RNA sequence: CUGAGGUAUCUACCUUGGGGCCCCAGGAAGCAUGAGAAGGUCUCCCAUGUGGGAGACAAACCAACCCUGUUUAAUAUUUAAACAGCAGUGUUCCCC
Numbered sequence: 001c002u003g004a005g006g007u008a009u010c011u012a013c014c015u016u017g018g019g020g021c022c023c024c025a026g027g028a029a030g031c032a033u034g035a036g037a038a039g040g041u042c043u044c045c046c047a048u049g050u051g052g053g054a055g056a057c058a059a060a061c062c063a064a065c066c067c068u069g070u071u072u073a074a075u076a077u078u079u080a081a082a083c084a085g086c087a088g089u090g091u092u093c094c095c096c
Stems, first nucleotide, its partner, number of pairs: 005023002009019003040057007067085008
Dot-bracket structure: ....((..(((.....)))..))................(((((((....))))))).........((((((((...))))))))...........
The family of this 96-nucleotide RNA from Marmota monax is "G-CSF factor stem-loop destabilising element (SLDE)". The base pairs follow the family's consensus structure, which is taken from published work. The source organism's lineage runs through Eukaryota, Eumetazoa, Sarcopterygii, Dipnotetrapodomorpha and Marmota. A search with the family's covariance model found it, with a score of 92 bits. This family represents the granulocyte colony-stimulating factor stem-loop destabilising element (G-CSF SLDE). G-CSF is secreted by fibroblasts and endothelial cells in response to the inflammatory mediators interleukin-1 (IL-1) and tumour necrosis factor alpha and by activated macrophages. A reference for the family is Putland et al. (2002), "RNA destabilization by the granulocyte colony-stimulating factor stem-loop destabilizing element involves a single stem-loop that promotes deadenylation", Mol Cell Biol.